[Rfam]
RNA sequence: GUCGCAAGUUUGAGGUCAUAGCAGAAACACUCAUGGGGCGGCUUUGUCAGAUUCCAGUGAAUCUGUGAAUUCUGCU
Numbered sequence: 001g002u003c004g005c006a007a008g009u010u011u012g013a014g015g016u017c018a019u020a021g022c023a024g025a026a027a028c029a030c031u032c033a034u035g036g037g038g039c040g041g042c043u044u045u046g047u048c049a050g051a052u053u054c055c056a057g058u059g060a061a062u063c064u065g066u067g068a069a070u071u072c073u074g075c076u
Base pairs, nucleotide, nucleotide: 012044013043015042016041017040020076021075022074023073024072025071026070028038048065049064050063051062052061053060054059
Shown here is a 76-nucleotide sequence from Alligator sinensis, a member of the family "Mammalian CPEB3 ribozyme". A search with the family's covariance model found it, with a score of 46 bits. NCBI's taxonomy places the organism under Eukaryota, Gnathostomata, Sarcopterygii, Archelosauria, Alligator. Rfam 15.1 lists 5,706 matches to the family in 197 species.